Rfam assigns this 101-nucleotide sequence from Fumia xinanensis to the family "THF (Tetrahydrofolate) riboswitch aptamer". Its family is annotated with tetrahydrofolate metabolic process in the Gene Ontology.
RNA sequence: AGCAGAGUAGACAAACAGGCGUUAAGUGUCUGGCAGACGGGGAGUUGCUGCCGGGACGAAAAGCGAUAUCGCUUGCGGUCUGAUUGUCGCAUCCCGCUGUU
Numbered sequence: 001a002g003c004a005g006a007g008u009a010g011a012c013a014a015a016c017a018g019g020c021g022u023u024a025a026g027u028g029u030c031u032g033g034c035a036g037a038c039g040g041g042g043a044g045u046u047g048c049u050g051c052c053g054g055g056a057c058g059a060a061a062a063g064c065g066a067u068a069u070c071g072c073u074u075g076c077g078g079u080c081u082g083a084u085u086g087u088c089g090c091a092u093c094c095c096g097c098u099g100u101u
Stems, first nucleotide, its partner, number of pairs: 001101005010088005016082004020077003026057002029055008040094003044090001061074004